[Rfam]
The family of this 107-nucleotide RNA from Dioscorea zingiberensis is "Plant small nucleolar RNA R71". It is annotated as a C/D-box small nucleolar RNA. The family has 25 seed sequences and 278,378 matches in Rfam 15.1. The literature on the family includes a 2003 paper in Trends Plant Sci by Brown et al., "Plant snoRNAs: functional evolution and new modes of gene expression". Pairs were carried over by alignment from the consensus structure, which was predicted with PFOLD. The match comes from Rfam's covariance-model search (42 bits).
RNA sequence: AGACCAUGUUGUGGGCAACGAAUAAGUCGCUCUCUAAACCUUUCAAAAGCUUCAGAAAAUGUUUUAGCCCCAUUUUGCUUGAAAGAAUUGAUCUCGGACCGGAGUCU
Numbered sequence: 001a002g003a004c005c006a007u008g009u010u011g012u013g014g015g016c017a018a019c020g021a022a023u024a025a026g027u028c029g030c031u032c033u034c035u036a037a038a039c040c041u042u043u044c045a046a047a048a049g050c051u052u053c054a055g056a057a058a059a060u061g062u063u064u065u066a067g068c069c070c071c072a073u074u075u076u077g078c079u080u081g082a083a084a085g086a087a088u089u090g091a092u093c094u095c096g097g098a099c100c101g102g103a104g105u106c107u
Stems, first nucleotide, its partner, number of pairs: 001107001003105002005102001057074002